[Rfam]
RNA sequence: AAUCUGUCAUGGAUAACCUAGUGGAAGGCUCACCGCCAUGCCAAUUACCCUGCUUCGGUCGCAAGUCCAGCAGGAAAGGUGCCUGGUACGAAUCCUGGGGUUGGCAUUUUCACUCGUGCGAGUAAUCCACGACGCUGGAAGCCAUUAAGCAAUGGAAAUGACCCUUGAGGGAAGCAAUUCUGCAGAGACAUUUCCACCCCGGGAUGGCGUCGCCAGAUUACACCAUCCUGUUACAGGGAACUUGGCAACUUGGUGUGACAACUACUUUU
Dot-bracket structure: .(((.......))).....(((((....(.(((((...((((((.(.(((((.................((.(((..((((.((((((((.(((((((((.(.((.(((((..(((((.((....))))))).)..)))))).)(...)...(((((((....(((....(((....)))....)))..))))))))))))))))..))).)))))....)))).))).))..))))).).))))))...))))).)....)))))...